[Rfam]
RNA sequence: CAAAUUGUCAAAGGGGAGUAGCGUUGGAAUUGGGUGCCAAUUCCAAAAUAAAGUCGUCAUGACGUGGUAGAUCUGCACUACCAUCGGCUUUAUUGACAUGUAACAUGUUAAGCGAGACCUUUGCCCUAAUUGGGUAGAGGUCUCGCUUUUUUGGUACAUGU
Numbered sequence: 001c002a003a004a005u006u007g008u009c010a011a012a013g014g015g016g017a018g019u020a021g022c023g024u025u026g027g028a029a030u031u032g033g034g035u036g037c038c039a040a041u042u043c044c045a046a047a048a049u050a051a052a053g054u055c056g057u058c059a060u061g062a063c064g065u066g067g068u069a070g071a072u073c074u075g076c077a078c079u080a081c082c083a084u085c086g087g088c089u090u091u092a093u094u095g096a097c098a099u100g101u102a103a104c105a106u107g108u109u110a111a112g113c114g115a116g117a118c119c120u121u122u123g124c125c126c127u128a129a130u131u132g133g134g135u136a137g138a139g140g141u142c143u144c145g146c147u148u149u150u151u152u153g154g155u156a157c158a159u160g161u
Stems, first nucleotide, its partner, number of pairs: 025045008047094010064084007096161006
RNA: Manganese Mn2+ riboswitch aptamer (yybP-ykoY)
Organism: Oceanobacillus bengalensis